The record is an 85-nucleotide RNA from Amazona guildingii, which matches "Small nucleolar RNA U2-19" in Rfam.
Rfam 15.1 lists 1,147 matches to the family in 531 species.
The base pairs follow the family's consensus structure, which is taken from published work.
Taxonomically the source falls in Amazona (Eukaryota, Coelurosauria, Aves, Neoaves).
The sequence is in the family's curated seed alignment.
[Rfam]
RNA sequence: GGUCUGUGAUGAGAAAUAGCCAAAUCUGACCACCAGAAGAUAAAAACAAUCUUCCAGGUGUCAUGAUUUAUAUGUAGUUCUGAGA
Number, nucleotide and partner (000 for none) at each position: 001g000002g000003u000004c000005u000006g000007u000008g000009a000010u000011g000012a000013g000014a000015a000016a000017u000018a000019g000020c000021c000022a000023a000024a000025u000026c000027u000028g000029a000030c000031c060032a059033c058034c057035a000036g000037a000038a052039g051040a050041u049042a000043a000044a000045a000046a000047c000048a000049a041050u040051c039052u038053u000054c000055c000056a000057g034058g033059u032060g031061u000062c000063a000064u000065g000066a000067u000068u000069u000070a000071u000072a000073u000074g000075u000076a000077g000078u000079u000080c000081u000082g000083a000084g000085a000